This 63-nucleotide RNA sequence from Eptatretus burgeri belongs to the Rfam family "Selenocysteine insertion sequence 1".
[Rfam]
RNA sequence: CUCACCGCAUGACAGGAUUGGGGCAAAGCCUUCGGGACCCCCCAAUCUUUGAUGAUCGGAGAG
Numbered sequence: 001c002u003c004a005c006c007g008c009a010u011g012a013c014a015g016g017a018u019u020g021g022g023g024c025a026a027a028g029c030c031u032u033c034g035g036g037a038c039c040c041c042c043c044a045a046u047c048u049u050u051g052a053u054g055a056u057c058g059g060a061g062a063g
Base pairs, nucleotide, nucleotide: 001061002060003059014049015048016047017046018045019044020043021042022041023040029036030035

Annotation: Rfam links the family to the GO term selenocysteine incorporation. The family's consensus secondary structure is taken from published work. It scores 35 bits against the family's covariance model.